This 135-nucleotide sequence from Populus deltoides belongs to the Rfam family "MIR480 microRNA precursor family". On this family, see Lu et al., Plant Cell 2005: "Novel and mechanical stress-responsive MicroRNAs in Populus trichocarpa that are absent from Arabidopsis". Gene Ontology terms of the family: miRNA-mediated post-transcriptional gene silencing and RISC complex. NCBI's taxonomy places the organism under Eukaryota, Embryophyta, Mesangiospermae, Gunneridae, Populus. The match comes from Rfam's covariance-model search (52 bits).
RNA sequence: UAAUUUGUUUGUGGUAAGUCGGCAACCUAGUUAUAACAUAUCCUCAUUUGACUACUCAGAAUCUCUAGUUUUGGGUGAUGCUGUUACAUCAUUCAUCCAAUAAGAACUAUUGUUUGCAGAUACAAUCAACAACAU
Numbered sequence: 001u002a003a004u005u006u007g008u009u010u011g012u013g014g015u016a017a018g019u020c021g022g023c024a025a026c027c028u029a030g031u032u033a034u035a036a037c038a039u040a041u042c043c044u045c046a047u048u049u050g051a052c053u054a055c056u057c058a059g060a061a062u063c064u065c066u067a068g069u070u071u072u073g074g075g076u077g078a079u080g081c082u083g084u085u086a087c088a089u090c091a092u093u094c095a096u097c098c099a100a101u102a103a104g105a106a107c108u109a110u111u112g113u114u115u116g117c118a119g120a121u122a123c124a125a126u127c128a129a130c131a132a133c134a135u
Base pairs, nucleotide, nucleotide: 005132006131007130008129009128012125014123015122019118024114025113026112028109029108030107031106032105